Shown here is a 201-nucleotide RNA from Pseudomonas fulva, a member of the family "Pseudomonas sRNA P27".
By type it is a small RNA.
Taxonomically the source falls in Pseudomonas fulva (Bacteria, Pseudomonadota, Gammaproteobacteria, Pseudomonadaceae).
[Rfam]
RNA sequence: CGGGUUUACUCCUGGAUGUUACCGUUUCGCCCGGCCUGAGCCGGACGGCGUUUUGGUGUCUGAUUCGGUAAGAAUCGGGAGCACCAUCUGCGUAGGGUGGAAGAUCGCUCUUCUGGUUUGAGGCUUGCGCCCCCUACGGUCUUGGAUAGCCCCCGCCAGGCAGGGACCCCAAUUUUUGCGGCAGACGCACCAAGUGCGCCU
Numbered sequence: 001c002g003g004g005u006u007u008a009c010u011c012c013u014g015g016a017u018g019u020u021a022c023c024g025u026u027u028c029g030c031c032c033g034g035c036c037u038g039a040g041c042c043g044g045a046c047g048g049c050g051u052u053u054u055g056g057u058g059u060c061u062g063a064u065u066c067g068g069u070a071a072g073a074a075u076c077g078g079g080a081g082c083a084c085c086a087u088c089u090g091c092g093u094a095g096g097g098u099g100g101a102a103g104a105u106c107g108c109u110c111u112u113c114u115g116g117u118u119u120g121a122g123g124c125u126u127g128c129g130c131c132c133c134c135u136a137c138g139g140u141c142u143u144g145g146a147u148a149g150c151c152c153c154c155g156c157c158a159g160g161c162a163g164g165g166a167c168c169c170c171a172a173u174u175u176u177u178g179c180g181g182c183a184g185a186c187g188c189a190c191c192a193a194g195u196g197c198g199c200c201u
Stems, first nucleotide, its partner, number of pairs: 002169006011160004023050002028047002031044005054086006060078007090156003095151002098148001116147010184200001186198004